A member of the RNA family "Streptomyces-metH RNA" from Streptomyces aurantiacus, 120 nucleotides long. The family's consensus secondary structure is taken from published work. It scores 100 bits against the family's covariance model. Rfam classes the family as a small RNA.
Nucleotides: 120
Base pairs, nucleotide, nucleotide: 060082061081062080063079065077066076068074085099086098088097089096090095
Number, partner (000 for none) and nucleotide at each position: 001000c002000g003000g004000u005000c006000c007000g008000c009000c010000c011000g012000c013000u014000g015000g016000g017000a018000c019000g020000c021000u022000c023000u024000c025000a026000c027000g028000g029000c030000c031000g032000g033000a034000c035000c036000g037000g038000g039000g040000u041000c042000c043000c044000g045000g046000c047000u048000a049000c050000u051000c052000u053000g054000g055000c056000c057000g058000a059000g060082u061081g062080c063079g064000g065077g066076u067000c068074c069000c070000c071000g072000a073000g074068g075000a076066a077065c078000c079063c080062g081061c082060a083000a084000a085099g086098c087000c088097g089096a090095c091000a092000g093000c094000c095090g096089u097088c098086g099085c100000a101000c102000u103000c104000c105000a106000g107000g108000g109000a110000g111000c112000u113000c114000a115000u116000u117000c118000a119000u120000g